RNA sequence: CCGUGACCCCACCCACUCGGAUCGUCCGGCACGUUCCUGCCGGUAGGAGGACCACACC
Numbered sequence: 001c002c003g004u005g006a007c008c009c010c011a012c013c014c015a016c017u018c019g020g021a022u023c024g025u026c027c028g029g030c031a032c033g034u035u036c037c038u039g040c041c042g043g044u045a046g047g048a049g050g051a052c053c054a055c056a057c058c
Stems, first nucleotide, its partner, number of pairs: 009050002012047002015044001026043006